Annotation:
The record is a 131-nucleotide RNA from Spinacia oleracea, which matches "Small nucleolar RNA U19" in Rfam. Rfam classes the family as an H/ACA-box small nucleolar RNA.

Nucleotides: 131
Stems, first nucleotide, its partner, number of pairs: 004021002007018003034054005063125007073116004081111006088104002
Number, partner (000 for none) and nucleotide at each position: 001000u002000a003000u004021u005020g006000g007018u008017u009016u010000a011000g012000u013000u014000a015000a016009g017008g018007g019000g020005c021004a022000u023000a024000a025000a026000c027000c028000a029000a030000u031000u032000u033000g034054g035053a036052u037051c038050a039000a040000a041000u042000g043000u044000u045000a046000u047000a048000u049000u050038u051037g052036a053035u054034c055000c056000u057000u058000a059000u060000u061000u062000g063125c064124u065123a066122a067121g068120g069119c070000c071000u072000u073116c074115u075114u076113a077000u078000u079000a080000u081111g082110g083109g084108g085107a086106c087000u088104g089103u090000u091000u092000u093000u094000a095000u096000g097000c098000u099000u100000u101000u102000g103089a104088u105000u106086g107085u108084c109083c110082u111081c112000u113076u114075a115074a116073g117000u118000a119069g120068u121067c122066u123065u124064g125063g126000a127000c128000a129000u130000u131000u